[Rfam]
RNA sequence: UAAUUGAAUAUUGAAAUACUCCAUAUAAGUCCACAGAUACGGUGUGGACGUUUCUAUGUGGCAACCGUAAAUUGCCUACGCUAUGGUGUUCUUAUUUGUCGUC
Numbered sequence: 001u002a003a004u005u006g007a008a009u010a011u012u013g014a015a016a017u018a019c020u021c022c023a024u025a026u027a028a029g030u031c032c033a034c035a036g037a038u039a040c041g042g043u044g045u046g047g048a049c050g051u052u053u054c055u056a057u058g059u060g061g062c063a064a065c066c067g068u069a070a071a072u073u074g075c076c077u078a079c080g081c082u083a084u085g086g087u088g089u090u091c092u093u094a095u096u097u098g099u100c101g102u103c
Stems, first nucleotide, its partner, number of pairs: 018089002021086005029049007058079002060076005